Shown here is a 104-nucleotide RNA sequence from Artemisia annua, a member of the family "Small nucleolar RNA R44/J54/Z268 family". Its Rfam clan is "SNORD74 clan". It is annotated as a C/D-box small nucleolar RNA. It scores 70 bits against the family's covariance model.

[Rfam]
RNA sequence: UUUGCAAAUGAUGAUAACAAGACAGGGACAUCACAACUCCAAAUUUAUUUUGGAUUUAAUUUAAUGUUCGACCAAGUCUAUAAUGGGAAUCUCUUUGAUGCAAU
Numbered sequence: 001u002u003u004g005c006a007a008a009u010g011a012u013g014a015u016a017a018c019a020a021g022a023c024a025g026g027g028a029c030a031u032c033a034c035a036a037c038u039c040c041a042a043a044u045u046u047a048u049u050u051u052g053g054a055u056u057u058a059a060u061u062u063a064a065u066g067u068u069c070g071a072c073c074a075a076g077u078c079u080a081u082a083a084u085g086g087g088a089a090u091c092u093c094u095u096u097g098a099u100g101c102a103a104u
Base pairs, nucleotide, nucleotide: 002103003102004101005100006099